Shown here is a 118-nucleotide RNA from Chiloscyllium punctatum, a member of the family "Small nucleolar RNA SNORA26". The family is grouped with related families in Rfam's "SNORA27 clan". The organism belongs to Chiloscyllium, within Eukaryota. The family has 76 seed sequences and 1,943 matches in Rfam 15.1. On this family, see Huttenhofer et al., EMBO J 2001: "RNomics: an experimental approach that identifies 201 candidates for novel, small, non-messenger RNAs in mouse". About the family: The snoRNA HBI-6 belong to the H/ACA family of snoRNAs, guiding the pseudouridylation of position U4522 if the 28S rRNA. HBI-6 is the human orthologue of mouse MBI-6 snoRNA.

RNA sequence: UUGCCCAUUUAAGACUGUCAGUGUCUUAAGUGGCCAACACAGGAGGGUAGAUAAAUUUCACUCUAAAACCCAAGGCAAUGUUUGUUGUUGCUUUUGGAUCCUGUCGAGUGGAACAUAU
Numbered sequence: 001u002u003g004c005c006c007a008u009u010u011a012a013g014a015c016u017g018u019c020a021g022u023g024u025c026u027u028a029a030g031u032g033g034c035c036a037a038c039a040c041a042g043g044a045g046g047g048u049a050g051a052u053a054a055a056u057u058u059c060a061c062u063c064u065a066a067a068a069c070c071c072a073a074g075g076c077a078a079u080g081u082u083u084g085u086u087g088u089u090g091c092u093u094u095u096g097g098a099u100c101c102u103g104u105c106g107a108g109u110g111g112a113a114c115a116u117a118u
Stems, first nucleotide, its partner, number of pairs: 002049005008043003016036002019030001057112001059110005070097006078088001